[Rfam]
RNA sequence: UGCACUGCACAGUAUCUGCACUCAGCAGCUCCCUGCUGAGUGUGUUCAAAGAGCAGUGCGACAGAAAUUUGCCAUCUGGCAUCACUGGUUUUCUUGGCUUUGGUGCCUAUUAAAUCUGGUAUUUUUAUUGAUACAGCU
Numbered sequence: 001u002g003c004a005c006u007g008c009a010c011a012g013u014a015u016c017u018g019c020a021c022u023c024a025g026c027a028g029c030u031c032c033c034u035g036c037u038g039a040g041u042g043u044g045u046u047c048a049a050a051g052a053g054c055a056g057u058g059c060g061a062c063a064g065a066a067a068u069u070u071g072c073c074a075u076c077u078g079g080c081a082u083c084a085c086u087g088g089u090u091u092u093c094u095u096g097g098c099u100u101u102g103g104u105g106c107c108u109a110u111u112a113a114a115u116c117u118g119g120u121a122u123u124u125u126u127a128u129u130g131a132u133a134c135a136g137c138u
Base pairs, nucleotide, nucleotide: 002059003058004057005056006055007054015052016051017050018045019044020043021042023040024037025036026035027034028033063126064125065124066123067122068121069119070118071117078107079106080105081104082103

The record is a 138-nucleotide sequence from Nannospalax galili, which matches "Small nucleolar RNA SNORA8" in Rfam. Its family is annotated with RNA processing and nucleolus in the Gene Ontology. The family is grouped with related families in Rfam's "SNORA8 clan". The family's consensus secondary structure was predicted with RNAfold.